[Rfam]
RNA sequence: AACCAAAACUUCUAGUCAGGAUGUUUUCCAUUCCACAAGGGAUACAUGAAUCAACGAAAGUGUCUGUUAAAGUUUUGGGAGAUUAAUACUGCUCGCGUUCUUCUUUAGCAUCCGUUUUGGAUGCACCUUGAGGAACAAGGUGGGUAAUUUUCGUUUUGAAGAUAUGCCACCGACUUAUAGAGCAGAGAGGCACCUAUGAGUUGAGUUCAGGACUACGGUUUUUGACUGCGGAUACUUCCUGGACUCGUAGUAAGGAGCCUCACAACU
Number, nucleotide and partner (000 for none) at each position: 001a000002a000003c078004c077005a076006a075007a074008a000009c000010u000011u000012c000013u000014a000015g000016u000017c000018a000019g065020g064021a063022u062023g061024u060025u059026u058027u057028c056029c000030a043031u042032u041033c040034c039035a000036c000037a000038a000039g034040g033041g032042a031043u030044a000045c000046a000047u000048g000049a000050a000051u000052c000053a000054a000055c000056g028057a027058a026059a025060g024061u023062g022063u021064c020065u019066g000067u000068u000069a000070a000071a000072g000073u000074u007075u006076u005077g004078g003079g000080a000081g000082a000083u000084u000085a000086a000087u000088a000089c185090u184091g183092c182093u181094c180095g000096c000097g000098u000099u000100c000101u134102u133103c132104u131105u130106u000107a000108g124109c123110a122111u121112c120113c119114g000115u000116u000117u000118u000119g113120g112121a111122u110123g109124c108125a000126c000127c000128u000129u000130g105131a104132g103133g102134a101135a000136c000137a000138a000139g171140g170141u169142g168143g167144g000145u000146a000147a163148u162149u161150u160151u159152c158153g157154u000155u000156u000157u153158g152159a151160a150161g149162a148163u147164a000165u000166g000167c143168c142169a141170c140171c139172g000173a000174c000175u000176u000177a000178u000179a000180g094181a093182g092183c091184a090185g089186a000187g261188a260189g259190g258191c000192a000193c255194c254195u253196a000197u000198g000199a000200g000201u000202u247203g246204a245205g244206u243207u000208c241209a240210g239211g238212a000213c231214u230215a000216c228217g227218g226219u225220u000221u000222u000223u000224g000225a219226c218227u217228g216229c000230g214231g213232a000233u000234a000235c000236u000237u000238c211239c210240u209241g208242g000243a206244c205245u204246c203247g202248u000249a000250g000251u000252a000253a195254g194255g193256a000257g000258c190259c189260u188261c187262a000263c000264a000265a000266c000267u000

Source information
A member of the RNA family "Small nucleolar RNA snR191" from Lachancea waltii, 267 nucleotides long. The sequence is in the family's curated seed alignment. The literature on the family includes a 2003 paper in RNA by Badis et al., "A snoRNA that guides the two most conserved pseudouridine modifications within rRNA confers a growth advantage in yeast". The family is grouped with related families in Rfam's "SNORA74 clan". NCBI's taxonomy places the organism under Eukaryota, Ascomycota, Saccharomycotina, Saccharomycetales, Lachancea. The family's RNA type in Rfam is H/ACA-box small nucleolar RNA. Pairs were carried over by alignment from the consensus structure, which was predicted with WAR.